[Rfam]
Background
Proteobacterial sRNA psRNA2: a 180-nucleotide RNA from Nitrosomonas europaea. It scores 142 bits against the family's covariance model. The literature on the family includes a 2010 paper in FEMS Microbiol Lett by Gvakharia et al., "Computational prediction and transcriptional analysis of sRNAs in Nitrosomonas europaea". The base pairs follow the family's consensus structure. Lineage of the source: Bacteria > Pseudomonadota > Nitrosomonadales > Nitrosomonas > Nitrosomonas europaea.
RNA sequence: GGAUUACUCCUUUACGCUUUCGCGUUUGGUUGAUAAAGAUUCGCACCUCUAUCAAACCGGGUAAUCCCACCUCUUGGCAAGACCUGCUGUCAGAUCAAAUCUGAACUACUACAGCUUAUGAAACCUAUAUUAUCGCAGACGCCAUUAACCGUUUUACCGAUCGAAUCCAGGAAUAUGUCG
Numbered sequence: 001g002g003a004u005u006a007c008u009c010c011u012u013u014a015c016g017c018u019u020u021c022g023c024g025u026u027u028g029g030u031u032g033a034u035a036a037a038g039a040u041u042c043g044c045a046c047c048u049c050u051a052u053c054a055a056a057c058c059g060g061g062u063a064a065u066c067c068c069a070c071c072u073c074u075u076g077g078c079a080a081g082a083c084c085u086g087c088u089g090u091c092a093g094a095u096c097a098a099a100u101c102u103g104a105a106c107u108a109c110u111a112c113a114g115c116u117u118a119u120g121a122a123a124c125c126u127a128u129a130u131u132a133u134c135g136c137a138g139a140c141g142c143c144a145u146u147a148a149c150c151g152u153u154u155u156a157c158c159g160a161u162c163g164a165a166u167c168c169a170g171g172a173a174u175a176u177g178u179c180g
Stems, first nucleotide, its partner, number of pairs: 001067007009060002014025004028058004032053004037048002075144003081140001084138002089106002091103005110132002113130001162180003165174002167171001